bZIP non canonical Hac1/Xbp1 intron: an 86-nucleotide RNA sequence from Ceratitis capitata.
The family's consensus secondary structure was predicted with RNAfold.
Rfam's curators write: bZIP intron RNA is a non-canonical intron that was first reported in HAC1 gene in yeast and XBP1 gene in Metazoa.
On this family, see Hooks and Griffiths-Jones, RNA Biol 2011: "Conserved RNA structures in the non-canonical Hac1/Xbp1 intron".

[Rfam]
RNA sequence: GGCUGUGAGUCCAUACUCAAUGGAUCUGCAGUAUCCAUAUAUACUGACCCUCUGCAGCAGGGAUCAACCCAAAUGGACUCUCAGUC
Dot-bracket structure: (((((.(.(((((......((((((.......)))))).........((((.......))))...........))))).).)))))